Shown here is a 263-nucleotide part of an RNA from Wallemia ichthyophaga, a member of the family "Eukaryotic large subunit ribosomal RNA". Pairs were carried over by alignment from the consensus structure, which is taken from published work. A search with the family's covariance model found it, with a score of 3323 bits.
RNA sequence: CGUUUGAAGUUAGUCUGGUGAUAAUUGUUCAAUUGUUAUUUCGAUUUCAAUGUAUGCAAUUAUUAACCGGUCAACAUCAAUUUUGAUUGAUGGAUAAAGGUAAUGAGAAUGUAGCUAAUUUAGGUUAGUGUUAUAGCUCAUUAUCAUACACAUUGAUUAAGAUUGAGGAUGGCGGUGUACCUAUUUUUAAUAGGCAGAUUUAAGAAUCUAUUACACCAAGGAUGUUGACAAAAUAGCUUUAAGCGACCCGUCUUGAAACACGG
Numbered sequence: 001c002g003u004u005u006g007a008a009g010u011u012a013g014u015c016u017g018g019u020g021a022u023a024a025u026u027g028u029u030c031a032a033u034u035g036u037u038a039u040u041u042c043g044a045u046u047u048c049a050a051u052g053u054a055u056g057c058a059a060u061u062a063u064u065a066a067c068c069g070g071u072c073a074a075c076a077u078c079a080a081u082u083u084u085g086a087u088u089g090a091u092g093g094a095u096a097a098a099g100g101u102a103a104u105g106a107g108a109a110u111g112u113a114g115c116u117a118a119u120u121u122a123g124g125u126u127a128g129u130g131u132u133a134u135a136g137c138u139c140a141u142u143a144u145c146a147u148a149c150a151c152a153u154u155g156a157u158u159a160a161g162a163u164u165g166a167g168g169a170u171g172g173c174g175g176u177g178u179a180c181c182u183a184u185u186u187u188u189a190a191u192a193g194g195c196a197g198a199u200u201u202a203a204g205a206a207u208c209u210a211u212u213a214c215a216c217c218a219a220g221g222a223u224g225u226u227g228a229c230a231a232a233a234u235a236g237c238u239u240u241a242a243g244c245g246a247c248c249c250g251u252c253u254u255g256a257a258a259c260a261c262g263g
Stems, first nucleotide, its partner, number of pairs: 001245012017068001020067001022065004072227007248263004
Dot-bracket structure: ((((((((((((....(..(.((((....................................)))).))...(((((((..............................................................................................................................................)))))))......))))))))))))..((((........))))